[Rfam]
RNA sequence: AAAAAAGCAGGGUUGUGUUGCCUAUGUGAACAUGCCUCUUACAUAACCUUCAGGGAUAUAAUAACCAUUGUUUUUGGGUGAACCUGUGCUCUUGUUUUGUGACUUAAGGUUCAGUAAAUGAUGGAACAUAU
Numbered sequence: 001a002a003a004a005a006a007g008c009a010g011g012g013u014u015g016u017g018u019u020g021c022c023u024a025u026g027u028g029a030a031c032a033u034g035c036c037u038c039u040u041a042c043a044u045a046a047c048c049u050u051c052a053g054g055g056a057u058a059u060a061a062u063a064a065c066c067a068u069u070g071u072u073u074u075u076g077g078g079u080g081a082a083c084c085u086g087u088g089c090u091c092u093u094g095u096u097u098u099g100u101g102a103c104u105u106a107a108g109g110u111u112c113a114g115u116a117a118a119u120g121a122u123g124g125a126a127c128a129u130a131u
Base pairs, nucleotide, nucleotide: 005050006049007048011037012036014034015033016032017031065124066123067122068121069120070119071118072117079113080112081111082110083109084108085107